[Rfam]
Record summary
A member of the RNA family "Purine riboswitch aptamer" from Oceanobacillus bengalensis, 101 nucleotides long. Pairs were carried over by alignment from the consensus structure, which is taken from published work. NCBI's taxonomy places the organism under Bacteria, Bacilli, Caryophanales, Bacillaceae, Oceanobacillus.
RNA sequence: AAAAAUAGAAUAGCUAUACCUUGUAUAAGUCCUGAGAAUAUGGCUUGGACGUUUCUACCAGCUACCUUAAAUAGCUGUCUACAAGGGGUGGGAAAUAGAUG
Numbered sequence: 001a002a003a004a005a006u007a008g009a010a011u012a013g014c015u016a017u018a019c020c021u022u023g024u025a026u027a028a029g030u031c032c033u034g035a036g037a038a039u040a041u042g043g044c045u046u047g048g049a050c051g052u053u054u055c056u057a058c059c060a061g062c063u064a065c066c067u068u069a070a071a072u073a074g075c076u077g078u079c080u081a082c083a084a085g086g087g088g089u090g091g092g093a094a095a096u097a098g099a100u101g
Stems, first nucleotide, its partner, number of pairs: 019086007029050004034046003059077006